[Rfam]
RNA: SAM (S-adenosyl methionine) riboswitch aptamer
Organism: Yimella sp. RIT 621
RNA sequence: GGUCAUGAGACUCAGCGACAAGCCCUGGCUUGCUGAGCGGCAACCCUCCACCGCGGUGGGGUGCUCCAGGUGACGACCGGGCCGUAGCCCGACCGGGUUACGGCAAGCGCGGAUC
Numbered sequence: 001g002g003u004c005a006u007g008a009g010a011c012u013c014a015g016c017g018a019c020a021a022g023c024c025c026u027g028g029c030u031u032g033c034u035g036a037g038c039g040g041c042a043a044c045c046c047u048c049c050a051c052c053g054c055g056g057u058g059g060g061g062u063g064c065u066c067c068a069g070g071u072g073a074c075g076a077c078c079g080g081g082c083c084g085u086a087g088c089c090c091g092a093c094c095g096g097g098u099u100a101c102g103g104c105a106a107g108c109g110c111g112g113a114u115c
Base pairs, nucleotide, nucleotide: 001078002077003076004075009038011037012036013035014034015033016032021030022029039065040064041063044061045060046059048056049055081104082103083102084101085100086099087098088097089096090095